[Rfam]
RNA sequence: AAAGGAGCAAUAGCACCUUCUUGAUAGAACAAGAAAAUUAUUAUUGCUCCUUUUCUU
Numbered sequence: 001a002a003a004g005g006a007g008c009a010a011u012a013g014c015a016c017c018u019u020c021u022u023g024a025u026a027g028a029a030c031a032a033g034a035a036a037a038u039u040a041u042u043a044u045u046g047c048u049c050c051u052u053u054u055c056u057u
Stems, first nucleotide, its partner, number of pairs: 001053013018035006

Source information:
Shown here is a 57-nucleotide RNA from Solanum tuberosum, a member of the family "Plastid-psbA-3 3UTR RNA". By type it is a cis-regulatory element. From the family's description: Plastid psbA-3 is a non-coding RNA (ncRNA) present in plastids. It was identified in inverted repeat sequences in the 3 prime untranslate region (3UTR) of photosystem II quinone-binding protein (psbA). Clan: Plastid-psbA 3UTR RNA clan. On this family, see Richter et al., Plant Commun 2023: "Retrograde signaling in plants: A critical review focusing on the GUN pathway and beyond".